[Rfam]
RNA sequence: CUCUAGAUCAGGCAAUGAUUUAGGGCAAAAGGAG
Numbered sequence: 001c002u003c004u005a006g007a008u009c010a011g012g013c014a015a016u017g018a019u020u021u022a023g024g025g026c027a028a029a030a031g032g033a034g
Base pairs, nucleotide, nucleotide: 001025002024003023004022005021006020007019008018009017010016
L31-Firmicutes ribosomal protein leader: a 34-nucleotide RNA from Lacticaseibacillus casei. The family is grouped with related families in Rfam's "Ribosomal Protein L31 Leader clan". Rfam's curators put it in the seed alignment. On this family, see Eckert and Weinberg, BMC Microbiol 2020: "Discovery of 20 novel ribosomal leader candidates in bacteria and archaea". Lineage of the source: Bacteria > Bacillota > Bacilli > Lacticaseibacillus > Lacticaseibacillus casei. It is annotated as a cis-regulatory leader.